[Rfam]
This 166-nucleotide RNA from Butyrivibrio sp. INlla14 belongs to the Rfam family "Clostridiales-1 RNA". A search with the family's covariance model found it, with a score of 110 bits.
RNA sequence: CGUAUAUAGGUCUUCAAAGUCAUAUGUUGAUGUGCUUGCACAUAGCAACAUAUGACCUUGAAGACCGAACGAACAUGAGGAAAAAAGAUAUACGAAUGAAAUGAGUAUAUCGAUUUCCGAAUGUUCGUAGCAUGGCGAGAACGAAGAGGAGCCAUGCGUAUAUACG
Numbered sequence: 001c002g003u004a005u006a007u008a009g010g011u012c013u014u015c016a017a018a019g020u021c022a023u024a025u026g027u028u029g030a031u032g033u034g035c036u037u038g039c040a041c042a043u044a045g046c047a048a049c050a051u052a053u054g055a056c057c058u059u060g061a062a063g064a065c066c067g068a069a070c071g072a073a074c075a076u077g078a079g080g081a082a083a084a085a086a087g088a089u090a091u092a093c094g095a096a097u098g099a100a101a102u103g104a105g106u107a108u109a110u111c112g113a114u115u116u117c118c119g120a121a122u123g124u125u126c127g128u129a130g131c132a133u134g135g136c137g138a139g140a141a142c143g144a145a146g147a148g149g150a151g152c153c154a155u156g157c158g159u160a161u162a163u164a165c166g
Base pairs, nucleotide, nucleotide: 001166002165003164004163005162006161007160010065011064012063013062016059017058019056020055021054022053023052024051025050026049027048028047029046030043031042032041033040034039069128070127071126072125073124074123075122076121079118080117081116082115087111088110089109090108091107092106093105130157131156132155133154134153135152136151142146